This 350-nucleotide RNA from Alteromonas confluentis belongs to the Rfam family "Bacterial RNase P class A". It scores 339 bits against the family's covariance model. Rfam classes the family as a ribozyme. Lineage of the source: Bacteria > Pseudomonadati > Pseudomonadota > Alteromonadaceae > Alteromonas.
[Rfam]
RNA sequence: GGAGCUGGCCUGGCAAUCGCUGCUUUCGCAAGAAAGGGGAGGAAAGUCCGGGCUCCACAGGGCAGGGUGCCAGAUAACGUCUGGGCGGCGCGAGCCGACGACCAGUGCAGCAGAGAGUAAACCGCCUAAGCGCUUUUAGCGCCGGUAAGGGUGAAAGGGUGCGGUAAGAGCGCACCGCGCAACUGGUAACAGUUUGUGGCACGGUAAACUCCACCCGGAGCAAGACCAAAUAGGCCUUCUAUACGUGCGGCCCGCACGGAAGGCGGGUAGGUUGCUUGAGCCUGUGAGUAAUUGCAGGCCUAGAGGAAUGAUUGCCCACGACAGAACCCGGCUUAUGGCCAGCUCCCACU
Numbered sequence: 001g002g003a004g005c006u007g008g009c010c011u012g013g014c015a016a017u018c019g020c021u022g023c024u025u026u027c028g029c030a031a032g033a034a035a036g037g038g039g040a041g042g043a044a045a046g047u048c049c050g051g052g053c054u055c056c057a058c059a060g061g062g063c064a065g066g067g068u069g070c071c072a073g074a075u076a077a078c079g080u081c082u083g084g085g086c087g088g089c090g091c092g093a094g095c096c097g098a099c100g101a102c103c104a105g106u107g108c109a110g111c112a113g114a115g116a117g118u119a120a121a122c123c124g125c126c127u128a129a130g131c132g133c134u135u136u137u138a139g140c141g142c143c144g145g146u147a148a149g150g151g152u153g154a155a156a157g158g159g160u161g162c163g164g165u166a167a168g169a170g171c172g173c174a175c176c177g178c179g180c181a182a183c184u185g186g187u188a189a190c191a192g193u194u195u196g197u198g199g200c201a202c203g204g205u206a207a208a209c210u211c212c213a214c215c216c217g218g219a220g221c222a223a224g225a226c227c228a229a230a231u232a233g234g235c236c237u238u239c240u241a242u243a244c245g246u247g248c249g250g251c252c253c254g255c256a257c258g259g260a261a262g263g264c265g266g267g268u269a270g271g272u273u274g275c276u277u278g279a280g281c282c283u284g285u286g287a288g289u290a291a292u293u294g295c296a297g298g299c300c301u302a303g304a305g306g307a308a309u310g311a312u313u314g315c316c317c318a319c320g321a322c323a324g325a326a327c328c329c330g331g332c333u334u335a336u337g338g339c340c341a342g343c344u345c346c347c348a349c350u
Stems, first nucleotide, its partner, number of pairs: 001346010012316007020039002023036005044334003048331005053220004060253004065216005070084005085099001086097004100211002105209002107205002122150002124146003130142005158176006177200001178198005183192003224273004234264006244258005280299008